[Rfam]
RNA: Erse small RNA
RNA sequence: CCCGCGGAGUUGCUGGCACCGUACAUCGGUGAUAUCGCCGCCGAGGGUAUCGGCAAGUUUCUGCGUGGUGGUUCGUCGUUUUUGCGCAAAGGCAUGCAGCGUCAGCAGCGUUAUGCUGCUGAAGUGCUUACCGAAGAGUGGCGCAUGGCGCCAGGGCCGCUGGAAGUUGCCUGGUUUGCAGAAGAAACCGCUGCCGUUGAACGUGCGGUUGACGCGCUGUCCAAACGGCUGGAAAAACUGGAGGGCAAAUGA
Numbered sequence: 001c002c003c004g005c006g007g008a009g010u011u012g013c014u015g016g017c018a019c020c021g022u023a024c025a026u027c028g029g030u031g032a033u034a035u036c037g038c039c040g041c042c043g044a045g046g047g048u049a050u051c052g053g054c055a056a057g058u059u060u061c062u063g064c065g066u067g068g069u070g071g072u073u074c075g076u077c078g079u080u081u082u083u084g085c086g087c088a089a090a091g092g093c094a095u096g097c098a099g100c101g102u103c104a105g106c107a108g109c110g111u112u113a114u115g116c117u118g119c120u121g122a123a124g125u126g127c128u129u130a131c132c133g134a135a136g137a138g139u140g141g142c143g144c145a146u147g148g149c150g151c152c153a154g155g156g157c158c159g160c161u162g163g164a165a166g167u168u169g170c171c172u173g174g175u176u177u178g179c180a181g182a183a184g185a186a187a188c189c190g191c192u193g194c195c196g197u198u199g200a201a202c203g204u205g206c207g208g209u210u211g212a213c214g215c216g217c218u219g220u221c222c223a224a225a226c227g228g229c230u231g232g233a234a235a236a237a238c239u240g241g242a243g244g245g246c247a248a249a250u251g252a
Stems, first nucleotide, its partner, number of pairs: 001244002005240001006082005012054005019047002022044001027040005062075002065072002084215003089210001092206004099144006115128001117126003148179003152174001154172002157169001159167003186198003190194001217231001219229001221228002